Shown here is a 108-nucleotide RNA from Plutella xylostella, a member of the family "mir-8517 microRNA precursor family". Pairs were carried over by alignment from the consensus structure, which was predicted with RNAalifold.
[Rfam]
RNA sequence: UUACAGAACGUUUUAACUAAUAAACUGAUUUGUCCCUCUCCGACAAAGAAAAAUUUAUUCAUUGACAAAGAGGGACAAAACAGUUUAUUAGUUAAAACUGACUUCAAA
Numbered sequence: 001u002u003a004c005a006g007a008a009c010g011u012u013u014u015a016a017c018u019a020a021u022a023a024a025c026u027g028a029u030u031u032g033u034c035c036c037u038c039u040c041c042g043a044c045a046a047a048g049a050a051a052a053a054u055u056u057a058u059u060c061a062u063u064g065a066c067a068a069a070g071a072g073g074g075a076c077a078a079a080a081c082a083g084u085u086u087a088u089u090a091g092u093u094a095a096a097a098c099u100g101a102c103u104u105c106a107a108a
Stems, first nucleotide, its partner, number of pairs: 001107002005103002011097017029069006049059002052056001
Taxonomically the source falls in Plutella (Eukaryota, Neoptera, Aparaglossata, Ditrysia).